[Rfam]
RNA sequence: GUCUUUUCGUUUCCUUAUCAUUUCAGCUGUCCAGACGUUGAUUUAAGGAUAGCUGGACGGAGAACUGAUAAGGGCAGGAAAACGA
Number, nucleotide and partner (000 for none) at each position: 001g000002u000003c000004u000005u000006u000007u000008c000009g000010u000011u000012u074013c073014c072015u071016u070017a069018u068019c067020a066021u000022u064023u063024c062025a000026g000027c059028u000029g000030u056031c055032c000033a000034g000035a000036c000037g000038u000039u000040g000041a000042u000043u000044u000045a000046a000047g000048g000049a000050u000051a000052g000053c000054u000055g031056g030057a000058c000059g027060g000061a000062g024063a023064a022065c000066u020067g019068a018069u017070a016071a015072g014073g013074g012075c000076a000077g000078g000079a000080a000081a000082a000083c000084g000085a000